The family of this 53-nucleotide RNA from Staphylococcus argenteus is "Staphylococcus sRNA sau-6072". By type it is a small RNA. A reference for the family is Abu-Qatouseh et al. (2010), "Identification of differentially expressed small non-protein-coding RNAs in Staphylococcus aureus displaying both the normal and the small-colony variant phenotype", J Mol Med (Berl).
[Rfam]
RNA sequence: ACAUGGAGUCACAUCAUCUCAUGUUAGCGCUCUACUCGUAGGGCGCUAUUUUU
Numbered sequence: 001a002c003a004u005g006g007a008g009u010c011a012c013a014u015c016a017u018c019u020c021a022u023g024u025u026a027g028c029g030c031u032c033u034a035c036u037c038g039u040a041g042g043g044c045g046c047u048a049u050u051u052u053u
Stems, first nucleotide, its partner, number of pairs: 001024005008017002025048010